A member of the RNA family "mir-263 microRNA precursor family" from Pseudolycoriella hygida, 78 nucleotides long. NCBI's taxonomy places the organism under Eukaryota, Arthropoda, Neoptera, Bibionomorpha, Pseudolycoriella. Rfam 15.1 lists 368 matches to the family in 211 species. The base pairs follow the family's consensus structure, which was predicted with RNAalifold. The literature on the family includes a 2009 paper in BMC Genomics by Li et al., "Direct sequencing and expression analysis of a large number of miRNAs in Aedes aegypti and a multi-species survey of novel mosquito miRNAs".
[Rfam]
RNA sequence: AGUUCUUUAGUCUUGGCACUGGAGAAUUCACAGUUGGAUUCGAAUCUGUGGAUCUUUUCGUGCCAUUAUUAAAGAUUG
Numbered sequence: 001a002g003u004u005c006u007u008u009a010g011u012c013u014u015g016g017c018a019c020u021g022g023a024g025a026a027u028u029c030a031c032a033g034u035u036g037g038a039u040u041c042g043a044a045u046c047u048g049u050g051g052a053u054c055u056u057u058u059c060g061u062g063c064c065a066u067u068a069u070u071a072a073a074g075a076u077u078g
Base pairs, nucleotide, nucleotide: 004075005074006073007072008071009070010069014065015064016063017062018061021058022057023055024054025053028051029050030049031048032047033046